[Rfam]
RNA: Small nucleolar RNA snR60/Z15/Z230/Z193/J17
Nucleotides: 084
Stems, first nucleotide, its partner, number of pairs: 004081004
Number, partner (000 for none) and nucleotide at each position: 001000a002000g003000g004081c005080u006079g007078c008000u009000g010000u011000g012000u013000g014000a015000u016000g017000a018000c019000u020000g021000c022000a023000u024000a025000g026000u027000u028000c029000a030000g031000c032000a033000g034000a035000u036000g037000c038000c039000c040000u041000g042000u043000g044000g045000u046000g047000a048000a049000c050000a051000g052000u053000c054000a055000c056000u057000g058000u059000c060000u061000u062000u063000c064000g065000c066000a067000u068000c069000c070000u071000g072000u073000c074000u075000g076000a077000u078007g079006c080005a081004g082000c083000c084000u